[Rfam]
RNA sequence: UCAUUUCGCAAGGGGGUCACAGCAGGAGCGUUAAAUGUCGCGGUCCUGGUCGAACCCAUGUACUGAUGGGUUGUGAAUCCUGCU
Numbered sequence: 001u002c003a004u005u006u007c008g009c010a011a012g013g014g015g016g017u018c019a020c021a022g023c024a025g026g027a028g029c030g031u032u033a034a035a036u037g038u039c040g041c042g043g044u045c046c047u048g049g050u051c052g053a054a055c056c057c058a059u060g061u062a063c064u065g066a067u068g069g070g071u072u073g074u075g076a077a078u079c080c081u082g083c084u
Stems, first nucleotide, its partner, number of pairs: 013047006021084007028041003051073001053072006
The record is an 84-nucleotide RNA sequence from Zootermopsis nevadensis, which matches "Mammalian CPEB3 ribozyme" in Rfam. The organism belongs to Zootermopsis, within Eukaryota.